Shown here is a 63-nucleotide sequence from Prochlorococcus marinus, a member of the family "Glutamine-II riboswitch aptamer". Its family is annotated with glutamine binding in the Gene Ontology. The literature on the family includes a 2019 paper in Nucleic Acids Res by Huang et al., "Structure and ligand binding of the glutamine-II riboswitch". The sequence is in the family's curated seed alignment.
RNA sequence: AAACGUUCAACUCGCUACAUUGCGAGCCGCAUUUCGAUUUAAGCCAAGGAACGGGGACUUAAA
Numbered sequence: 001a002a003a004c005g006u007u008c009a010a011c012u013c014g015c016u017a018c019a020u021u022g023c024g025a026g027c028c029g030c031a032u033u034u035c036g037a038u039u040u041a042a043g044c045c046a047a048g049g050a051a052c053g054g055g056g057a058c059u060u061a062a063a
Stems, first nucleotide, its partner, number of pairs: 004053005011026004038063006044056002